[Rfam]
RNA: Small nucleolar RNA SNORD115
RNA sequence: GGAUCAAUAAUGAGUUAAUGUCUUCAACAGAAGUGAAAACACAAGAAUCAAGCUCAGUUGGAUUAUUCUGAAGCCC
Numbered sequence: 001g002g003a004u005c006a007a008u009a010a011u012g013a014g015u016u017a018a019u020g021u022c023u024u025c026a027a028c029a030g031a032a033g034u035g036a037a038a039a040c041a042c043a044a045g046a047a048u049c050a051a052g053c054u055c056a057g058u059u060g061g062a063u064u065a066u067u068c069u070g071a072a073g074c075c076c
Base pairs, nucleotide, nucleotide: 001076002075004073005070006069009066